[Rfam]
RNA sequence: GGGCGGGUAGCUCAGUUGGGAGAGCAUCGGCCUUACAAGCCGGGGGUCGCAGGUUCAAGCCCUGUCCCGCCUA
Numbered sequence: 001g002g003g004c005g006g007g008u009a010g011c012u013c014a015g016u017u018g019g020g021a022g023a024g025c026a027u028c029g030g031c032c033u034u035a036c037a038a039g040c041c042g043g044g045g046g047u048c049g050c051a052g053g054u055u056c057a058a059g060c061c062c063u064g065u066c067c068c069g070c071c072u073a
Base pairs, nucleotide, nucleotide: 001072002071003070004069005068006067007066010025011024012023013022027043028042029041030040031039049065050064051063052062053061
RNA: tRNA